[Rfam]
RNA sequence: GGUGGGAGGGCGGUGAAUACAAUACCCUUCGGGGGAAUAAACCCGCCUGUCUCUUUUCAGGUUCUAAACCUCCCGCCACCAGUGG
Numbered sequence: 001g002g003u004g005g006g007a008g009g010g011c012g013g014u015g016a017a018u019a020c021a022a023u024a025c026c027c028u029u030c031g032g033g034g035g036a037a038u039a040a041a042c043c044c045g046c047c048u049g050u051c052u053c054u055u056u057u058c059a060g061g062u063u064c065u066a067a068a069c070c071u072c073c074c075g076c077c078a079c080c081a082g083u084g085g
Stems, first nucleotide, its partner, number of pairs: 001077009012043003016038001025034003045062005

Source information: A member of the RNA family "sRNA-Xcc1" from Kiloniella litopenaei, 85 nucleotides long. Pairs were carried over by alignment from the consensus structure, which was predicted with RNAalifold. The source organism's lineage runs through Bacteria, Pseudomonadati, Rhodospirillales, Kiloniellaceae and Kiloniella. A search with the family's covariance model found it, with a score of 66 bits.